Background: C. elegans snoRNA ceN100: a 134-nucleotide RNA from Caenorhabditis remanei. For this family Rfam cites "Systematic identification of non-coding RNA 2,2,7-trimethylguanosine cap structures in Caenorhabditis elegans" (Jia et al., BMC Mol Biol, 2007).
RNA sequence: AAACGAGGUCCAGAGUCACCAUUUCGGAUUGAUUUUCUGAUUUGGUGCUAGGAUUUCUCGAAAAUAAAAUUUGGUCGUAUUAUGCAAGUAGGGCUUGCUAUGCGCUCCCCUCCUUCACCUCAUUCCCAUACAAU
Numbered sequence: 001a002a003a004c005g006a007g008g009u010c011c012a013g014a015g016u017c018a019c020c021a022u023u024u025c026g027g028a029u030u031g032a033u034u035u036u037c038u039g040a041u042u043u044g045g046u047g048c049u050a051g052g053a054u055u056u057c058u059c060g061a062a063a064a065u066a067a068a069a070u071u072u073g074g075u076c077g078u079a080u081u082a083u084g085c086a087a088g089u090a091g092g093g094c095u096u097g098c099u100a101u102g103c104g105c106u107c108c109c110c111u112c113c114u115u116c117a118c119c120u121c122a123u124u125c126c127c128a129u130a131c132a133a134u
Base pairs, nucleotide, nucleotide: 004060005059006058007057008054009053010052011051014049015048017047018046019045020044021043025039027037028036072128073127074126077123078122083117084116086115087114088113091110092109093108097105098104